This 248-nucleotide part of an RNA from Rhodobacter sp. 24-YEA-8 belongs to the Rfam family "Bacterial large subunit ribosomal RNA". Pairs were carried over by alignment from the consensus structure, which is taken from published work. Gene Ontology terms of the family: structural constituent of ribosome and ribosome.
[Rfam]
RNA sequence: GGAGGCUUGAGAAGAGUUGACCCUAGUACGAGAGGACCGGGUUGAACGAACCACUGGUGGACCUGUUAUCGUGCCAACGGUAGUGCAGGGUAGCUAUGUUCGGACAGGAUAAACGCUGAAGGCAUCUAAGCGUGAAGCCCCCUUCAAAACUAGGCCUCCCUUGAGGGCCGUGGUAGACCACCACGUCGAUAGGCCAGAGGUGUAAGUGCGGUAACGCAUUCAGCUGACUGGUACUAAUUGCCCGAUUG
Numbered sequence: 001g002g003a004g005g006c007u008u009g010a011g012a013a014g015a016g017u018u019g020a021c022c023c024u025a026g027u028a029c030g031a032g033a034g035g036a037c038c039g040g041g042u043u044g045a046a047c048g049a050a051c052c053a054c055u056g057g058u059g060g061a062c063c064u065g066u067u068a069u070c071g072u073g074c075c076a077a078c079g080g081u082a083g084u085g086c087a088g089g090g091u092a093g094c095u096a097u098g099u100u101c102g103g104a105c106a107g108g109a110u111a112a113a114c115g116c117u118g119a120a121g122g123c124a125u126c127u128a129a130g131c132g133u134g135a136a137g138c139c140c141c142c143u144u145c146a147a148a149a150c151u152a153g154g155c156c157u158c159c160c161u162u163g164a165g166g167g168c169c170g171u172g173g174u175a176g177a178c179c180a181c182c183a184c185g186u187c188g189a190u191a192g193g194c195c196a197g198a199g200g201u202g203u204a205a206g207u208g209c210g211g212u213a214a215c216g217c218a219u220u221c222a223g224c225u226g227a228c229u230g231g232u233a234c235u236a237a238u239u240g241c242c243c244g245a246u247u248g
Stems, first nucleotide, its partner, number of pairs: 001159008011145004017045007047102005055096003062089005067082006107139002113133005162245001165243004169185005190236003193232005199225002206219005